[Rfam]
Nucleotides: 083
Stems, first nucleotide, its partner, number of pairs: 006079001010075001012073001014070003018066004023061003027057002030055001032053003
Number, partner (000 for none) and nucleotide at each position: 001000c002000u003000u004000g005000c006079u007000u008000g009000u010075g011000c012073u013000a014070a015069g016068g017000u018066g019065c020064a021063u022000c023061u024060a025059g026000u027057g028056c029000a030055g031000a032053u033052a034051g035000u036000u037000c038000c039000g040000c041000u042000g043000c044000g045000u046000a047000a048000a049000u050000g051034c052033u053032a054000c055030u056028g057027c058000u059025c060024u061023a062000u063021g064020u065019g066018c067000u068016c069015c070014u071000u072000u073012a074000c075010c076000c077000a078000c079006a080000a081000g082000a083000g
Shown here is an 83-nucleotide RNA sequence from Petromyzon marinus, a member of the family "mir-17 microRNA precursor family".
This family represents the microRNA (miRNA) precursor mir-17, family, which includes mir-20, mir-91, and mir-103. miRNAs are transcribed as ~70nt precursors (modelled here) and subsequently processed by the Dicer enzyme to give a ~22nt product. In this case the mature sequence comes from the 3' arm of the precursor.
On this family, see Ambros, Cell 2001: "microRNAs: tiny regulators with great potential".
It is one of the family's seed sequences.